[Rfam]
RNA: Glutamine riboswitch aptamer (glnA leader)
RNA sequence: AUCGUUGGGCUCGGGCCUGCUCUUACAGACCUCUUCAGCCGGAAGUAGCCACCCGCGUGGCGAAGCAACGCUCC
Numbered sequence: 001a002u003c004g005u006u007g008g009g010c011u012c013g014g015g016c017c018u019g020c021u022c023u024u025a026c027a028g029a030c031c032u033c034u035u036c037a038g039c040c041g042g043a044a045g046u047a048g049c050c051a052c053c054c055g056c057g058u059g060g061c062g063a064a065g066c067a068a069c070g071c072u073c074c
Stems, first nucleotide, its partner, number of pairs: 003070005009039003042071001048061005